Notes
A member of the RNA family "Small nucleolar RNA snoR145" from Musa troglodytarum, 148 nucleotides long. The organism belongs to Musa, within Eukaryota. The family has 19 seed sequences and 286 matches in Rfam 15.1. Rfam classes the family as an H/ACA-box small nucleolar RNA. The match comes from Rfam's covariance-model search (78 bits).

[Rfam]
RNA sequence: GAGCGAAGGGCCCAGCAGAGGGGUGAUGAACUCGUGAGUUGAGACCUCUCUAACGUCUCGGUACAACCUUCGCAAAGAGAAGCCUGCCGUGGUCGUACGACGCCUGAACUCUGGUUUUCCUGGUGUCUCGUACCACGGCUACAGAUCC
Numbered sequence: 001g002a003g004c005g006a007a008g009g010g011c012c013c014a015g016c017a018g019a020g021g022g023g024u025g026a027u028g029a030a031c032u033c034g035u036g037a038g039u040u041g042a043g044a045c046c047u048c049u050c051u052a053a054c055g056u057c058u059c060g061g062u063a064c065a066a067c068c069u070u071c072g073c074a075a076a077g078a079g080a081a082g083c084c085u086g087c088c089g090u091g092g093u094c095g096u097a098c099g100a101c102g103c104c105u106g107a108a109c110u111c112u113g114g115u116u117u118u119c120c121u122g123g124u125g126u127c128u129c130g131u132a133c134c135a136c137g138g139c140u141a142c143a144g145a146u147c148c
Stems, first nucleotide, its partner, number of pairs: 003073007011020001013018001025050002031043004086139006099127002102124003106120001108118001